RNA sequence: GGCAGUUCUUGGGUGAUGCACCCUGGAAUUGGGCUCCCUCCUCUCUGGUUCCAGGGUGCUUUACCGGAGAACCACU
Numbered sequence: 001g002g003c004a005g006u007u008c009u010u011g012g013g014u015g016a017u018g019c020a021c022c023c024u025g026g027a028a029u030u031g032g033g034c035u036c037c038c039u040c041c042u043c044u045c046u047g048g049u050u051c052c053a054g055g056g057u058g059c060u061u062u063a064c065c066g067g068a069g070a071a072c073c074a075c076u
Stems, first nucleotide, its partner, number of pairs: 002075001005072006012065005019058005025052009
About this RNA
A member of the RNA family "mir-9223 microRNA precursor family" from Myotis brandtii, 76 nucleotides long. Lineage of the source: Eukaryota > Teleostomi > Euteleostomi > Yangochiroptera > Myotis. Pairs were carried over by alignment from the consensus structure, which was predicted with RNAalifold. Gene Ontology terms of the family: RISC complex and miRNA-mediated post-transcriptional gene silencing.